[Rfam]
A member of the RNA family "c-di-AMP riboswitch aptamer (ydaO/yuaA leader)" from Plantactinospora sp. BB1, 144 nucleotides long. This family represents a conserved RNA structure found upstream of the ydaO and yuaA genes in Bacillus subtilis and related genes in other bacteria.

RNA sequence: GGAGCAGACCCGCCGAGUCGUUACGUAACGAGCCGGGGACCCACAGUUAUCUGGGGUGAAUCCGCGAGCCGCUGUGGCCCGCGGUAGGGCGGCCUUCCUGCCCGAAUCCGUCAGCUAACCCGGUAGGCGGUGUCGGAAGGAGUA
Number, nucleotide and partner (000 for none) at each position: 001g000002g000003a000004g000005c000006a000007g000008a000009c000010c000011c129012g128013c127014c126015g000016a000017g000018u031019c030020g029021u028022u027023a000024c000025g000026u000027a022028a021029c020030g019031a018032g124033c123034c122035g121036g120037g119038g000039a000040c000041c000042c053043a052044c000045a000046g000047u000048u000049a000050u000051c000052u043053g042054g109055g108056g107057u000058g000059a000060a000061u000062c084063c083064g082065c081066g000067a000068g000069c000070c000071g000072c000073u000074g000075u000076g000077g000078c000079c000080c000081g065082c064083g063084g062085u000086a000087g103088g102089g101090c100091g000092g000093c000094c000095u000096u000097c000098c000099u000100g090101c089102c088103c087104g000105a000106a000107u056108c055109c054110g000111u000112c000113a000114g000115c000116u000117a000118a000119c037120c036121c035122g034123g033124u032125a000126g014127g013128c012129g011130g000131u000132g000133u000134c000135g000136g000137a000138a000139g000140g000141a000142g000143u000144a000